Rfam assigns this 210-nucleotide RNA sequence from Cupriavidus pinatubonensis to the family "permuted transfer-messenger RNA". From the family's description: Bacterial tmRNA, also known as 10Sa RNA or SsrA, is named for its dual tRNA and mRNA-like properties. Its role is to liberate the mRNA from a stalled ribosome. To accomplish this part of the tmRNA is used as a reading frame that ends in a translation stop signal. The broken mRNA is replaced in the ribosome by the tmRNA and translation of the tmRNA leads to addition of a proteolysis tag to the incomplete protein enabling recognition by a protease. Recently a number of permuted tmRNA genes have been found encoded in two parts. tmRNAs have been identified in eubacteria and some chloroplasts but are absent from archaeal and eukaryote nuclear genomes. Rfam classes the family as a non-coding RNA gene. The sequence is in the family's curated seed alignment.
[Rfam]
RNA sequence: GGUUGUGAACCUUCUUCUUGAAGGCCUUCUGGACGGCGGUUCGAUUCCGCCCAGGUCCACCAGAAGCACAUUGCACGGGCAGUGCGCUUCUGAUGGGCCUGACCUGGUUUCGACAGGGGGAGAUAGGGUCGUGAGGCAACUCGUCAGAGAAGACGUUAAAACUAAAUCGAAGUAAAUGCUAACGACGAAAAGUUCGCAUUGGCCGCCUAA
Numbered sequence: 001g002g003u004u005g006u007g008a009a010c011c012u013u014c015u016u017c018u019u020g021a022a023g024g025c026c027u028u029c030u031g032g033a034c035g036g037c038g039g040u041u042c043g044a045u046u047c048c049g050c051c052c053a054g055g056u057c058c059a060c061c062a063g064a065a066g067c068a069c070a071u072u073g074c075a076c077g078g079g080c081a082g083u084g085c086g087c088u089u090c091u092g093a094u095g096g097g098c099c100u101g102a103c104c105u106g107g108u109u110u111c112g113a114c115a116g117g118g119g120g121a122g123a124u125a126g127g128g129u130c131g132u133g134a135g136g137c138a139a140c141u142c143g144u145c146a147g148a149g150a151a152g153a154c155g156u157u158a159a160a161a162c163u164a165a166a167u168c169g170a171a172g173u174a175a176a177u178g179c180u181a182a183c184g185a186c187g188a189a190a191a192g193u194u195c196g197c198a199u200u201g202g203c204c205g206c207c208u209a210a
Stems, first nucleotide, its partner, number of pairs: 001141005014131001017128001025120003029116003035051005052101007142155004
Dot-bracket structure: (((((........(..(.......(((.(((...(((((.......)))))(((((((....................................)))))))............))).))).......)..).....)))))((((......)))).......................................................